[Rfam]
Nucleotides: 150
Base pairs, nucleotide, nucleotide: 028057029056030055031054032053034045035044036043109135110134111133112132113131114130115129116128117127118126
Number, partner (000 for none) and nucleotide at each position: 001000a002000a003000a004000u005000a006000a007000a008000u009000a010000a011000c012000a013000u014000u015000u016000g017000u018000a019000c020000c021000g022000u023000a024000g025000a026000c027000a028057g029056u030055a031054g032053g033000u034045g035044c036043u037000a038000u039000u040000a041000u042000u043036a044035g045034c046000u047000u048000a049000a050000u051000u052000u053032c054031c055030u056029a057028c058000c059000g060000a061000g062000g063000u064000a065000a066000u067000a068000c069000g070000a071000u072000a073000g074000a075000u076000u077000a078000g079000u080000c081000a082000g083000u084000u085000g086000u087000u088000a089000a090000u091000g092000a093000a094000c095000a096000a097000c098000u099000a100000u101000u102000g103000u104000a105000u106000a107000c108000a109135c110134c111133u112132c113131c114130a115129u116128g117127u118126c119000u120000u121000a122000u123000u124000a125000u126118g127117a128116u129115a130114u131113g132112g133111a134110g135109g136000a137000u138000u139000u140000u141000a142000u143000u144000u145000g146000u147000c148000g149000g150000u
A member of the RNA family "Ribosomal protein L10 leader" from Bacillus sp. B1-b2, 150 nucleotides long. It scores 91 bits against the family's covariance model. The organism belongs to Bacillus, within Bacteria.